[Rfam]
RNA sequence: UUCCCAACAGUCCUCUGAUUGCUGUUCUCCGAAAGGAAGAAUCGGUGGUCAGAACUUAACCCUAAGUAUUUG
Numbered sequence: 001u002u003c004c005c006a007a008c009a010g011u012c013c014u015c016u017g018a019u020u021g022c023u024g025u026u027c028u029c030c031g032a033a034a035g036g037a038a039g040a041a042u043c044g045g046u047g048g049u050c051a052g053a054a055c056u057u058a059a060c061c062c063u064a065a066g067u068a069u070u071u072g
Base pairs, nucleotide, nucleotide: 009056010055011054015052016051017050018049019048020047021046022045023044